Overview
mir-27 microRNA precursor family: a 78-nucleotide RNA sequence from Echeneis naucrates. The family has 82 seed sequences and 1,440 matches in Rfam 15.1. A search with the family's covariance model found it, with a score of 59 bits. The base pairs follow the family's consensus structure, which was predicted with RNAalifold. The organism belongs to Echeneis, within Eukaryota. Rfam links the family to the GO terms miRNA-mediated post-transcriptional gene silencing and RISC complex. The literature on the family includes a 2005 paper in Genes Dev by Chen et al., "The developmental miRNA profiles of zebrafish as determined by small RNA cloning".

[Rfam]
RNA sequence: AUCAGGUGCAGAGCUUAGUCAACUGCUGAACACGGAGUCUCACAGGUUUGUUCACAGUGGCUAAGUUCUUCAUUUGUA
Numbered sequence: 001a002u003c004a005g006g007u008g009c010a011g012a013g014c015u016u017a018g019u020c021a022a023c024u025g026c027u028g029a030a031c032a033c034g035g036a037g038u039c040u041c042a043c044a045g046g047u048u049u050g051u052u053c054a055c056a057g058u059g060g061c062u063a064a065g066u067u068c069u070u071c072a073u074u075u076g077u078a
Stems, first nucleotide, its partner, number of pairs: 011068010027054006